[Rfam]
RNA: Small nucleolar RNA MBII-202
Organism: Synaphobranchus kaupii
RNA sequence: UGAUGACACUUUCUCCGGAAUCUCUGCACUUGCUUUGAUGACUUCCGUUGAACCCUUUACAGCUGAUGACUGCAUAAUCUAAUC
Numbered sequence: 001u002g003a004u005g006a007c008a009c010u011u012u013c014u015c016c017g018g019a020a021u022c023u024c025u026g027c028a029c030u031u032g033c034u035u036u037g038a039u040g041a042c043u044u045c046c047g048u049u050g051a052a053c054c055c056u057u058u059a060c061a062g063c064u065g066a067u068g069a070c071u072g073c074a075u076a077a078u079c080u081a082a083u084c
Stems, first nucleotide, its partner, number of pairs: 002084003006080001